[Rfam]
Actino-pnp RNA: a 60-nucleotide RNA from Actinoplanes awajinensis. The family's RNA type in Rfam is cis-regulatory element. NCBI's taxonomy places the organism under Bacteria, Actinomycetota, Actinomycetes, Micromonosporales, Actinoplanes awajinensis. It scores 53 bits against the family's covariance model.
Nucleotides: 060
Base pairs, nucleotide, nucleotide: 002059003058004057005056006055007054010051011050012049013048017044018043019042021040022039023038024037025036026035028033
Number, partner (000 for none) and nucleotide at each position: 001000a002059c003058c004057g005056g006055u007054c008000u009000c010051c011050g012049g013048u014000a015000g016000u017044g018043g019042u020000u021040c022039c023038c024037a025036g026035g027000c028033a029000g030000a031000c032000a033028u034000a035026c036025c037024u038023g039022g040021g041000u042019a043018c044017u045000u046000c047000g048013a049012u050011c051010g052000a053000a054007g055006a056005c057004c058003g059002g060000c